[Rfam]
RNA sequence: UUGGAGCUGUAAACAUCCCCGACUGGAAGCUGUCACUCAGUAAAGCUUUCAGUCUGAUGUUUGCACCCGCCAA
Numbered sequence: 001u002u003g004g005a006g007c008u009g010u011a012a013a014c015a016u017c018c019c020c021g022a023c024u025g026g027a028a029g030c031u032g033u034c035a036c037u038c039a040g041u042a043a044a045g046c047u048u049u050c051a052g053u054c055u056g057a058u059g060u061u062u063g064c065a066c067c068c069g070c071c072a073a
Base pairs, nucleotide, nucleotide: 002072003071004070006068008065009064010063011062012061013060014059015058016057017056022053023052024051025050026049027048028047029046030045031044
This 73-nucleotide RNA from Gadus morhua belongs to the Rfam family "mir-30 microRNA precursor family". Gene Ontology terms of the family: RISC complex and gene silencing by miRNA. The match comes from Rfam's covariance-model search (62 bits). Pairs were carried over by alignment from the consensus structure, which was predicted with PFOLD.